Record summary:
The family of this 89-nucleotide RNA from Serinus canaria is "Small nucleolar RNA SNORD70". The family has 21 seed sequences and 1,085 matches in Rfam 15.1.
[Rfam]
RNA sequence: CUGUCUGUUGUCAAUGAUGGAUUCUUGUUGAAGCUGAAUAUCACUGAUUUGAGUCAACAAUUCGUCACUACCACUGAGACAACAGACAG
Number, nucleotide and partner (000 for none) at each position: 001c089002u088003g087004u086005c085006u084007g083008u082009u081010g080011u079012c078013a000014a000015u000016g000017a000018u000019g000020g000021a000022u000023u000024c000025u000026u000027g000028u000029u000030g000031a000032a000033g000034c000035u000036g000037a000038a000039u000040a000041u000042c000043a000044c000045u000046g000047a000048u000049u000050u000051g000052a000053g000054u000055c000056a000057a000058c000059a000060a000061u000062u000063c000064g000065u000066c000067a000068c000069u000070a000071c000072c000073a000074c000075u000076g000077a000078g012079a011080c010081a009082a008083c007084a006085g005086a004087c003088a002089g001
Gene Ontology terms of the family: RNA processing and nucleolus. The base pairs follow the family's consensus structure. For this family Rfam cites "RNomics: an experimental approach that identifies 201 candidates for novel, small, non-messenger RNAs in mouse" (Huttenhofer et al., EMBO J, 2001). Rfam's curators write: snoRNA HBII-234 belongs to the C/D family of snoRNAs. It is the human orthologue of the mouse MBII-234 and is predicted to guide 2'O-ribose methylation of the small 18S rRNA on position A512.